[Rfam]
RNA sequence: CUUAUCCUUAUCUUGGGGUUGUACUACUGUUCAAUGAAUAUCUAGUGAGAACAGUACUGCUAACACCUACAUAACACAUCUUCAAGACUAAAAUAAUGCAACUGUCCUUAAUCCUUGAUUCACAAAGCACUGAUAAUUGAAAAA
Numbered sequence: 001c002u003u004a005u006c007c008u009u010a011u012c013u014u015g016g017g018g019u020u021g022u023a024c025u026a027c028u029g030u031u032c033a034a035u036g037a038a039u040a041u042c043u044a045g046u047g048a049g050a051a052c053a054g055u056a057c058u059g060c061u062a063a064c065a066c067c068u069a070c071a072u073a074a075c076a077c078a079u080c081u082u083c084a085a086g087a088c089u090a091a092a093a094u095a096a097u098g099c100a101a102c103u104g105u106c107c108u109u110a111a112u113c114c115u116u117g118a119u120u121c122a123c124a125a126a127g128c129a130c131u132g133a134u135a136a137u138u139g140a141a142a143a144a
Base pairs, nucleotide, nucleotide: 006018007017008016009015021060022059023058026055027054028053029052030051031050032049038046039045095131097129098128099127108122110120111119112118113117
A member of the RNA family "U4atac minor spliceosomal RNA" from Pseudonaja textilis, 144 nucleotides long. Its Rfam clan is "U4 clan". By type it is a spliceosomal small nuclear RNA. The base pairs follow the family's consensus structure, which is taken from published work. From the family's description: U4atac is an essential component of the minor U12-type spliceosome complex which is required for removal of the rarer class of eukaryotic introns (AT-AC, U12-type).